RNA sequence: CAAUUUAGUUACUGGGUAAGUAUCCUAUCGGGCUUUUUAGGCUAGUAACUUAUAUUUAGAGGAGUGCAGUUAAUGGCCCGUAUCGCCGGCAUUAACAUUCCUGAG
Numbered sequence: 001c002a003a004u005u006u007a008g009u010u011a012c013u014g015g016g017u018a019a020g021u022a023u024c025c026u027a028u029c030g031g032g033c034u035u036u037u038u039a040g041g042c043u044a045g046u047a048a049c050u051u052a053u054a055u056u057u058a059g060a061g062g063a064g065u066g067c068a069g070u071u072a073a074u075g076g077c078c079c080g081u082a083u084c085g086c087c088g089g090c091a092u093u094a095a096c097a098u099u100c101c102u103g104a105g
Base pairs, nucleotide, nucleotide: 005052007050008049009048010047011046012045013044024089025088029080030079031078032077037104038103039102
The family of this 105-nucleotide sequence from Agaribacter marinus is "Alpha operon ribosome binding site". Its family is annotated with ribosome binding in the Gene Ontology. The family's consensus secondary structure is taken from published work. A reference for the family is Schlax et al. (2001), "Translational repression of the Escherichia coli alpha operon mRNA: importance of an mRNA conformational switch and a ternary entrapment complex", J Biol Chem. It scores 87 bits against the family's covariance model.